[Rfam]
RNA: Ribosomal protein L20 leader
Organism: Candidatus Enterococcus clewellii
RNA sequence: AAAUAAAAGCAGAAGCACCCGCUUCUCGCCUUAGUUGAGUAUAUCACUGGGCUGGAUAAGAGGAUUCCUUGUAUCGGUAAGAUAUGAGUAUGAAUUUACGCGGGUUCUGAAUGGAACCGGCUUUUUUUAUGCCUU
Numbered sequence: 001a002a003a004u005a006a007a008a009g010c011a012g013a014a015g016c017a018c019c020c021g022c023u024u025c026u027c028g029c030c031u032u033a034g035u036u037g038a039g040u041a042u043a044u045c046a047c048u049g050g051g052c053u054g055g056a057u058a059a060g061a062g063g064a065u066u067c068c069u070u071g072u073a074u075c076g077g078u079a080a081g082a083u084a085u086g087a088g089u090a091u092g093a094a095u096u097u098a099c100g101c102g103g104g105u106u107c108u109g110a111a112u113g114g115a116a117c118c119g120g121c122u123u124u125u126u127u128u129a130u131g132c133c134u135u
Stems, first nucleotide, its partner, number of pairs: 011026006028052003034047001036046003100121002103118006